[Rfam]
RNA sequence: GUCUGGAAAACAAUGAUGUGGUAAUUUCCAAGCACAUAUCUGAUGAUUCUGUGUGGAAUUCAAGUAUUCUGAGUUUUCUGGAC
Numbered sequence: 001g002u003c004u005g006g007a008a009a010a011c012a013a014u015g016a017u018g019u020g021g022u023a024a025u026u027u028c029c030a031a032g033c034a035c036a037u038a039u040c041u042g043a044u045g046a047u048u049c050u051g052u053g054u055g056g057a058a059u060u061c062a063a064g065u066a067u068u069c070u071g072a073g074u075u076u077u078c079u080g081g082a083c
Stems, first nucleotide, its partner, number of pairs: 001083006008076004